This 58-nucleotide sequence belongs to the Rfam family "Plastid-psbA-4 3UTR RNA". By type it is a cis-regulatory element. Pairs were carried over by alignment from the consensus structure, which was predicted with LocARNA. Plastid psbA-4 is a non-coding RNA (ncRNA) present in plastids. It was identified in inverted repeat sequences in the 3 prime untranslate region (3UTR) of photosystem II quinone-binding protein (psbA). Rfam's curators put it in the seed alignment.
[Rfam]
RNA sequence: AAAAAAAGGAGCAAAAAUUACCUUCUUGUUCUAUCAAGAGGGUGAUAUUGCUCCUUUU
Number, nucleotide and partner (000 for none) at each position: 001a000002a000003a000004a000005a057006a056007a055008g054009g053010a052011g051012c050013a049014a048015a000016a046017a000018u000019u000020a000021c042022c000023u040024u039025c038026u037027u036028g035029u000030u000031c000032u000033a000034u000035c028036a027037a026038g025039a024040g023041g000042g021043u000044g000045a000046u016047a000048u014049u013050g012051c011052u010053c009054c008055u007056u006057u005058u000